The family of this 86-nucleotide RNA from Tribolium castaneum is "mir-3817 microRNA precursor family". Lineage of the source: Eukaryota > Metazoa > Hexapoda > Neuropteroidea > Tribolium.
[Rfam]
RNA sequence: UAACUGGGGCCAGUUUCGGGGUGUGGGAGUGGUAUUAUUUUUUUAAAGUAAUAUUGCUCACUACACCUCCAAAUUGGUCUUGGUAC
Number, nucleotide and partner (000 for none) at each position: 001u000002a000003a084004c083005u082006g081007g080008g079009g078010c077011c076012a075013g074014u073015u072016u071017c000018g069019g068020g067021g066022u065023g064024u063025g062026g061027g000028a058029g057030u056031g055032g054033u053034a052035u051036u050037a049038u048039u000040u000041u000042u000043u000044u000045a000046a000047a000048g038049u037050a036051a035052u034053a033054u032055u031056g030057c029058u028059c000060a000061c026062u025063a024064c023065a022066c021067c020068u019069c018070c000071a016072a015073a014074u013075u012076g011077g010078u009079c008080u007081u006082g005083g004084u003085a000086c000

Gene Ontology terms of the family: RISC complex and miRNA-mediated post-transcriptional gene silencing. The family's consensus secondary structure was predicted with RNAalifold.